RNA sequence: UACAACGUCACCCAAAGUAGUGAACGUAAUUUAUCGUGAGCUAUCUAUAGAUAUUAUGCUCAUUACUUUGGAGAAGUUGUA
Numbered sequence: 001u002a003c004a005a006c007g008u009c010a011c012c013c014a015a016a017g018u019a020g021u022g023a024a025c026g027u028a029a030u031u032u033a034u035c036g037u038g039a040g041c042u043a044u045c046u047a048u049a050g051a052u053a054u055u056a057u058g059c060u061c062a063u064u065a066c067u068u069u070g071g072a073g074a075a076g077u078u079g080u081a
Base pairs, nucleotide, nucleotide: 002080003079004078005077006076008074009073012071013070014069015068016067017066018065019064020063021062022061023060025058026057027056028055029054032053033052034051035050038045039044
The record is an 81-nucleotide RNA from Heliconius melpomene, which matches "mir-2763 microRNA precursor family" in Rfam. The sequence is in the family's curated seed alignment. Rfam 15.1 lists 59 matches to the family in 43 species.